The family of this 211-nucleotide RNA sequence from Rhodococcus coprophilus is "Actinobacteria sRNA Ms_IGR-5".
Lineage of the source: Bacteria > Bacillati > Actinomycetota > Nocardiaceae > Rhodococcus.
Pairs were carried over by alignment from the consensus structure.
RNA sequence: ACACGAGGAAGGAGGUGGUCUGAAAUUGAGUUAUCUUCGGACAUGUGAGGUGGCUACCCGCUAGCCGCUCGUCGACCACAGCAUUCUCCGACCGCGAGCGGCCGGCGAAUACCAGGUAGUCACCCGACCCCCGAGUCCCCGGAUAGUCCCACCGGGCUCGCCGAGUUCCGGCUCUCACCGGCUCGCCGAGACGACUCGGGGGUCGUUCGUG
Numbered sequence: 001a002c003a004c005g006a007g008g009a010a011g012g013a014g015g016u017g018g019u020c021u022g023a024a025a026u027u028g029a030g031u032u033a034u035c036u037u038c039g040g041a042c043a044u045g046u047g048a049g050g051u052g053g054c055u056a057c058c059c060g061c062u063a064g065c066c067g068c069u070c071g072u073c074g075a076c077c078a079c080a081g082c083a084u085u086c087u088c089c090g091a092c093c094g095c096g097a098g099c100g101g102c103c104g105g106c107g108a109a110u111a112c113c114a115g116g117u118a119g120u121c122a123c124c125c126g127a128c129c130c131c132c133g134a135g136u137c138c139c140c141g142g143a144u145a146g147u148c149c150c151a152c153c154g155g156g157c158u159c160g161c162c163g164a165g166u167u168c169c170g171g172c173u174c175u176c177a178c179c180g181g182c183u184c185g186c187c188g189a190g191a192c193g194a195c196u197c198g199g200g201g202g203u204c205g206u207u208c209g210u211g
Base pairs, nucleotide, nucleotide: 014058015057016056017055018054019053059107060106061105062104064102065101067099068098069097070096072094074092125205126204127203128202129201130200131199132198133197134196135195136194137193138156139155140154141153142152